[Rfam]
RNA: Small nucleolar RNA R160
RNA sequence: AACAAAAUGAUGAAGUCAAAACUUGUCUGAUACUGGCAUGAGGAUAUAUUGUUUCAUAAGGUCUUCAAAGUUCUCUGAUUGAU
Numbered sequence: 001a002a003c004a005a006a007a008u009g010a011u012g013a014a015g016u017c018a019a020a021a022c023u024u025g026u027c028u029g030a031u032a033c034u035g036g037c038a039u040g041a042g043g044a045u046a047u048a049u050u051g052u053u054u055c056a057u058a059a060g061g062u063c064u065u066c067a068a069a070g071u072u073c074u075c076u077g078a079u080u081g082a083u
Base pairs, nucleotide, nucleotide: 001083003081004080005079
Dot-bracket structure: (.(((.........................................................................))).)